The family of this 100-nucleotide RNA from Paenibacillus faecis is "Purine riboswitch aptamer". It scores 71 bits against the family's covariance model. Its family is annotated with purine nucleobase biosynthetic process in the Gene Ontology. The family's consensus secondary structure is taken from published work.

RNA sequence: AUUUUUUUUCAUAUAUUUUCUCGUAUAUGUGCAGGAAUCGGCCUGCAUGUCUCUACCCGAUCACCGGAAUGGUCGGACUACGGGGAAUACCGCGGGUUGA
Numbered sequence: 001a002u003u004u005u006u007u008u009u010c011a012u013a014u015a016u017u018u019u020c021u022c023g024u025a026u027a028u029g030u031g032c033a034g035g036a037a038u039c040g041g042c043c044u045g046c047a048u049g050u051c052u053c054u055a056c057c058c059g060a061u062c063a064c065c066g067g068a069a070u071g072g073u074c075g076g077a078c079u080a081c082g083g084g085g086a087a088u089a090c091c092g093c094g095g096g097u098u099g100a
Stems, first nucleotide, its partner, number of pairs: 018086008029048007057076007
Dot-bracket structure: .................((((((((...(((((((......)))))))........(((((((......)))))))..))))))))..............